The record is a 90-nucleotide RNA sequence from Pan troglodytes, which matches "mir-663 microRNA precursor family" in Rfam.
Pairs were carried over by alignment from the consensus structure, which was predicted with RNAalifold.
On this family, see Takada et al., Leukemia 2008: "MicroRNA expression profiles of human leukemias".
The source organism's lineage runs through Eukaryota, Sarcopterygii, Primates, Hominoidea and Pan.
Its family is annotated with miRNA-mediated post-transcriptional gene silencing and RISC complex in the Gene Ontology.

RNA sequence: CCAUCUGGCGUCCUAGGCGGAGUGCCGAGGGACCUCCCUCGUGUCUGUGGCGGUGGGAUCCCAUGGCCGCGUUUUCCUGGUGGCCCGGCC
Numbered sequence: 001c002c003a004u005c006u007g008g009c010g011u012c013c014u015a016g017g018c019g020g021a022g023u024g025c026c027g028a029g030g031g032a033c034c035u036c037c038c039u040c041g042u043g044u045c046u047g048u049g050g051c052g053g054u055g056g057g058a059u060c061c062c063a064u065g066g067c068c069g070c071g072u073u074u075u076c077c078u079g080g081u082g083g084c085c086c087g088g089c090c
Stems, first nucleotide, its partner, number of pairs: 005088004011083002013080005019073002022070002024067004029062004033053002036050002038047001